Makes More Granules Regulator RNA (mmgR): a 78-nucleotide RNA sequence from Alphaproteobacteria bacterium PA3. NCBI's taxonomy places the organism under Bacteria, Pseudomonadati, Pseudomonadota, Alphaproteobacteria. Pairs were carried over by alignment from the consensus structure. By type it is a small RNA.
RNA sequence: CGUCCCUGCCCUUUUUGGGCGUUUCCUCCCAAACACCUAUAAGGCCGGGCCUCGUGCCCGGCCCUUUUUUUGUCCAAA
Number, nucleotide and partner (000 for none) at each position: 001c000002g000003u000004c000005c000006c000007u000008g020009c019010c018011c017012u000013u000014u000015u000016u000017g011018g010019g009020c008021g000022u000023u000024u000025c000026c000027u000028c000029c000030c000031a000032a000033a000034c000035a000036c000037c000038u000039a000040u000041a000042a000043g063044g062045c061046c060047g059048g058049g057050c056051c000052u000053c000054g000055u000056g050057c049058c048059c047060g046061g045062c044063c043064c000065u000066u000067u000068u000069u000070u000071u000072g000073u000074c000075c000076a000077a000078a000

Rfam's curators write: SuhB later renamed mmgR (makes more granules regulator) was a putative non-coding RNA found multiple times in the Agrobacterium tumefaciens genome and related alpha-proteobacteria.